[Rfam]
Shown here is a 48-nucleotide RNA sequence from Nakamurella panacisegetis, a member of the family "L31-Actinobacteria ribosomal protein leader".
RNA sequence: CCGGCUCCGGUUCACGCGUCGCACACAAGUGCGGGCGACCCGGCGGCC
Number, nucleotide and partner (000 for none) at each position: 001c000002c000003g048004g047005c046006u000007c043008c042009g041010g040011u000012u000013c000014a000015c037016g036017c035018g000019u034020c033021g032022c031023a030024c029025a000026c000027a000028a000029g024030u023031g022032c021033g020034g019035g017036c016037g015038a000039c000040c010041c009042g008043g007044c000045g000046g005047c004048c003
A search with the family's covariance model found it, with a score of 50 bits.